[Rfam]
A member of the RNA family "DUF3268 RNA", 118 nucleotides long. The base pairs follow the family's consensus structure, which is taken from published work. By type it is a small RNA.
RNA sequence: GAUCAAGAACUGCGCUCAGGCUUUCGAUCCGUCGUUGGCCACGGCGGCAGACUUGCCUGAUGAGCGGCAGGGAAUCGUUACGGGACCACUUGUCCGAUGGCCCCAUACAGCGCAGAUC
Numbered sequence: 001g002a003u004c005a006a007g008a009a010c011u012g013c014g015c016u017c018a019g020g021c022u023u024u025c026g027a028u029c030c031g032u033c034g035u036u037g038g039c040c041a042c043g044g045c046g047g048c049a050g051a052c053u054u055g056c057c058u059g060a061u062g063a064g065c066g067g068c069a070g071g072g073a074a075u076c077g078u079u080a081c082g083g084g085a086c087c088a089c090u091u092g093u094c095c096g097a098u099g100g101c102c103c104c105a106u107a108c109a110g111c112g113c114a115g116a117u118c
Stems, first nucleotide, its partner, number of pairs: 007118002010115007025077004029047007052071006082104003086100003